[Rfam]
RNA sequence: GGUGACAAAACAAUAGUACCUCAUAUAAUCACGGGAUUAUGGCCCGUAAGUCUCUACCCGAUGACCGUUAUUCAUCGGACUAUGAGGGGAAGCACACUGCUG
Numbered sequence: 001g002g003u004g005a006c007a008a009a010a011c012a013a014u015a016g017u018a019c020c021u022c023a024u025a026u027a028a029u030c031a032c033g034g035g036a037u038u039a040u041g042g043c044c045c046g047u048a049a050g051u052c053u054c055u056a057c058c059c060g061a062u063g064a065c066c067g068u069u070a071u072u073c074a075u076c077g078g079a080c081u082a083u084g085a086g087g088g089g090a091a092g093c094a095c096a097c098u099g100c101u102g
Base pairs, nucleotide, nucleotide: 019087020086021085022084023083024082025081029049031047032046033045034044035043058078059077060076061075062074063073064072
RNA: Purine riboswitch aptamer